Rfam assigns this 104-nucleotide sequence from Ornithorhynchus anatinus to the family "mir-130 microRNA precursor family".
The source organism's lineage runs through Eukaryota, Bilateria, Teleostomi, Ornithorhynchidae and Ornithorhynchus.
The literature on the family includes a 2002 paper in Curr Biol by Lagos-Quintana et al., "Identification of tissue-specific microRNAs from mouse".
RNA sequence: UCCAAAGCCCGUGCUCUUUCCACUGAGCCACGCUGUACCCUAUAACAGAAUUAGCAGACAAGUUCCAAGCAGCGUGGCUCAGUGGAAAGAGCCUGGGCUUGGGA
Numbered sequence: 001u002c003c004a005a006a007g008c009c010c011g012u013g014c015u016c017u018u019u020c021c022a023c024u025g026a027g028c029c030a031c032g033c034u035g036u037a038c039c040c041u042a043u044a045a046c047a048g049a050a051u052u053a054g055c056a057g058a059c060a061a062g063u064u065c066c067a068a069g070c071a072g073c074g075u076g077g078c079u080c081a082g083u084g085g086a087a088a089g090a091g092c093c094u095g096g097g098c099u100u101g102g103g104a
Base pairs, nucleotide, nucleotide: 001104002103003102006099007098008097009096010095011094013092014091015090016089017088018087019086020085023082024081025080026079027078028077029076030075031074032073033072034071035070036069